[Rfam]
The record is a 95-nucleotide RNA from Ormenosvirus syn9, which matches "wcaG RNA" in Rfam. Rfam's curators put it in the seed alignment. Rfam classes the family as a cis-regulatory element.
RNA sequence: GACAGUUUCUUACUUUAGAAAAAGUAAGUGGUGCGGAUGGGGUUACCCCGCCUGGUUUCUACAUUCCAGUAAAGAUGUAGUGGUGGAGUCAACGA
Numbered sequence: 001g002a003c004a005g006u007u008u009c010u011u012a013c014u015u016u017a018g019a020a021a022a023a024g025u026a027a028g029u030g031g032u033g034c035g036g037a038u039g040g041g042g043u044u045a046c047c048c049c050g051c052c053u054g055g056u057u058u059c060u061a062c063a064u065u066c067c068a069g070u071a072a073a074g075a076u077g078u079a080g081u082g083g084u085g086g087a088g089u090c091a092a093c094g095a
Base pairs, nucleotide, nucleotide: 009028010027011026012025013024014023016022038050039049040048041047042046052069053068054067055066059080060079061078062077063076064075